[Rfam]
RNA sequence: GCGAGUAGGGAAAAGAAAGUCAUGAGUAUCUCAGAGCGGUGGGCAUGGGAGUAUGGAGGAAAGCAUGAAAUUUCUUAGUCUAUAAAUUUGGGAGCCAUGGUGUUCUUGUGUUUCCCCUAUGCCUCCCAUGCCUAUUGUUCUUAGAUCUUCCUUUCUUUUCCAAUUAGCU
Numbered sequence: 001g002c003g004a005g006u007a008g009g010g011a012a013a014a015g016a017a018a019g020u021c022a023u024g025a026g027u028a029u030c031u032c033a034g035a036g037c038g039g040u041g042g043g044c045a046u047g048g049g050a051g052u053a054u055g056g057a058g059g060a061a062a063g064c065a066u067g068a069a070a071u072u073u074c075u076u077a078g079u080c081u082a083u084a085a086a087u088u089u090g091g092g093a094g095c096c097a098u099g100g101u102g103u104u105c106u107u108g109u110g111u112u113u114c115c116c117c118u119a120u121g122c123c124u125c126c127c128a129u130g131c132c133u134a135u136u137g138u139u140c141u142u143a144g145a146u147c148u149u150c151c152u153u154u155c156u157u158u159u160c161c162a163a164u165u166a167g168c169u
Stems, first nucleotide, its partner, number of pairs: 009160005015154003024150003029145003033141006040134011052121003056117001058116002061113004

The record is a 169-nucleotide RNA sequence from Triticum urartu, which matches "MIR2118 microRNA precursor family" in Rfam. The literature on the family includes a 2009 paper in Nucleic Acids Res by Xue et al., "Characterization and expression profiles of miRNAs in rice seeds". The family has 7 seed sequences and 2,377 matches in Rfam 15.1.